This 120-nucleotide RNA from Aureimonas sp. Leaf454 belongs to the Rfam family "Alphaproteobacterial ar14".
Rfam links the family to the GO term biological process involved in symbiotic interaction.
By type it is a small RNA.
The match comes from Rfam's covariance-model search (88 bits).
The family has 118 seed sequences and 784 matches in Rfam 15.1.
Pairs were carried over by alignment from the consensus structure.
Rfam describes the family as follows. Smr14C2 was renamed NfeR1 (Nodule Formation Efficiency RNA) highly expressed in salt stress and during the symbiotic interaction on legume roots.

RNA sequence: GGAUUUCGCGUCUGUUCAUCUCCUCCCUGAACCGAUGCGAAUCAGAGUCUGCGGUUUCCUCCUCCCACCGCAGACUUCACAAACGACACCCGCCGGCUCCUCCCCCGGCGGGUGUUGUUG
Numbered sequence: 001g002g003a004u005u006u007c008g009c010g011u012c013u014g015u016u017c018a019u020c021u022c023c024u025c026c027c028u029g030a031a032c033c034g035a036u037g038c039g040a041a042u043c044a045g046a047g048u049c050u051g052c053g054g055u056u057u058c059c060u061c062c063u064c065c066c067a068c069c070g071c072a073g074a075c076u077u078c079a080c081a082a083a084c085g086a087c088a089c090c091c092g093c094c095g096g097c098u099c100c101u102c103c104c105c106c107g108g109c110g111g112g113u114g115u116u117g118u119u120g
Stems, first nucleotide, its partner, number of pairs: 007039003011035002014032004045077010086115011
Dot-bracket structure: ......(((.((.((((...........)))).)).))).....((((((((((.............))))))))))........(((((((((((........))))))))))).....